[Rfam]
RNA sequence: GGGGGGAGGCCGGAUCCUAGGCUGUGUCCCUGCGCCCUGUGCCACCGGGCCUGCGCUAUUGGAUUCGCGCUCCGGCGCAGCCGCCU
Numbered sequence: 001g002g003g004g005g006g007a008g009g010c011c012g013g014a015u016c017c018u019a020g021g022c023u024g025u026g027u028c029c030c031u032g033c034g035c036c037c038u039g040u041g042c043c044a045c046c047g048g049g050c051c052u053g054c055g056c057u058a059u060u061g062g063a064u065u066c067g068c069g070c071u072c073c074g075g076c077g078c079a080g081c082c083g084c085c086u
Base pairs, nucleotide, nucleotide: 001086002085003084005082006081009078010077013076016075017074020072021071023069024068025067026066027063028062029061032056033055034054035053039051041050042049043048

Background
mir-8799 microRNA precursor family: an 86-nucleotide RNA sequence from Nyctereutes procyonoides. The base pairs follow the family's consensus structure, which was predicted with RNAalifold. Its family is annotated with RISC complex and miRNA-mediated post-transcriptional gene silencing in the Gene Ontology. Its Rfam clan is "mir-8791 microRNA precursor clan".